[Rfam]
RNA sequence: ACUCGGGCCGACGACUGGCGCGGGUGGACCACCACCGGGGAGUCAACUGGGAUCGCAUCGCCCGCCUGGGUGCGACCG
Numbered sequence: 001a002c003u004c005g006g007g008c009c010g011a012c013g014a015c016u017g018g019c020g021c022g023g024g025u026g027g028a029c030c031a032c033c034a035c036c037g038g039g040g041a042g043u044c045a046a047c048u049g050g051g052a053u054c055g056c057a058u059c060g061c062c063c064g065c066c067u068g069g070g071u072g073c074g075a076c077c078g
Stems, first nucleotide, its partner, number of pairs: 003051002006048002010044003015039002017066004024035004055073005